[Rfam]
Nucleotides: 061
Base pairs, nucleotide, nucleotide: 010025011024012023013022016052017051018050019049020048021047033042034041
Number, partner (000 for none) and nucleotide at each position: 001000c002000a003000a004000u005000u006000a007000a008000u009000a010025g011024g012023c013022a014000a015000u016052g017051a018050u019049g020048u021047c022013u023012g024011c025010c026000u027000u028000g029000a030000a031000c032000c033042g034041c035000c036000u037000c038000a039000g040000u041034g042033c043000u044000a045000a046000u047021g048020a049019c050018g051017u052016c053000u054000a055000c056000a057000a058000a059000a060000a061000a
This 61-nucleotide sequence from Myroides guanonis belongs to the Rfam family "Fluoride riboswitch aptamer (crcB RNA motif)". NCBI's taxonomy places the organism under Bacteria, Pseudomonadati, Bacteroidota, Flavobacteriaceae, Myroides. The match comes from Rfam's covariance-model search (47 bits). Rfam links the family to the GO terms response to fluoride and positive regulation of gene expression.